[Rfam]
RNA sequence: CGAUAAAAAAUUUCAUAAACUCAUAUAAUUUUGGGAAUAUGGCCCAUAAGUUUCUACCGGAUAACCACUUCAAUUGUCCGACUAUGAGUGAAAGCGCAUCUAGG
Numbered sequence: 001c002g003a004u005a006a007a008a009a010a011u012u013u014c015a016u017a018a019a020c021u022c023a024u025a026u027a028a029u030u031u032u033g034g035g036a037a038u039a040u041g042g043c044c045c046a047u048a049a050g051u052u053u054c055u056a057c058c059g060g061a062u063a064a065c066c067a068c069u070u071c072a073a074u075u076g077u078c079c080g081a082c083u084a085u086g087a088g089u090g091a092a093a094g095c096g097c098a099u100c101u102a103g104g
Stems, first nucleotide, its partner, number of pairs: 019089007029049002032046004058080007
RNA: Purine riboswitch aptamer
Organism: Paenibacillus cremeus